The family of this 73-nucleotide RNA sequence is "tRNA". Rfam's curators put it in the seed alignment. Pairs were carried over by alignment from the consensus structure, which is taken from published work. Gene Ontology term of the family: triplet codon-amino acid adaptor activity.
[Rfam]
RNA sequence: GGGUGUAUAGCUCAGUUGGUAGAGCAAUAGGCUUUUAACUUAAAGGUCGCAGGUUCAAGUCCUGCUAUACCCA
Numbered sequence: 001g002g003g004u005g006u007a008u009a010g011c012u013c014a015g016u017u018g019g020u021a022g023a024g025c026a027a028u029a030g031g032c033u034u035u036u037a038a039c040u041u042a043a044a045g046g047u048c049g050c051a052g053g054u055u056c057a058a059g060u061c062c063u064g065c066u067a068u069a070c071c072c073a
Base pairs, nucleotide, nucleotide: 001072002071003070004069005068006067007066010025011024012023013022028042029041030040031039049065050064051063052062053061

The family's RNA type in Rfam is transfer RNA.